Bacterial small signal recognition particle RNA: a 97-nucleotide RNA from Actinokineospora auranticolor. The match comes from Rfam's covariance-model search (69 bits). The base pairs follow the family's consensus structure, which is taken from published work.
RNA sequence: ACGCGGACCCCGUGCGGUGUUCAUCUCGCGAACCUCCCCAGGGCCGGAAGGCAGCAAGGAUAAGCGGGCUCUGGCAGGUGCGCGGGGUCCGCCUUAU
Numbered sequence: 001a002c003g004c005g006g007a008c009c010c011c012g013u014g015c016g017g018u019g020u021u022c023a024u025c026u027c028g029c030g031a032a033c034c035u036c037c038c039c040a041g042g043g044c045c046g047g048a049a050g051g052c053a054g055c056a057a058g059g060a061u062a063a064g065c066g067g068g069c070u071c072u073g074g075c076a077g078g079u080g081c082g083c084g085g086g087g088u089c090c091g092c093c094u095u096a097u
Stems, first nucleotide, its partner, number of pairs: 004091011015078001018076004025068005035060003043052003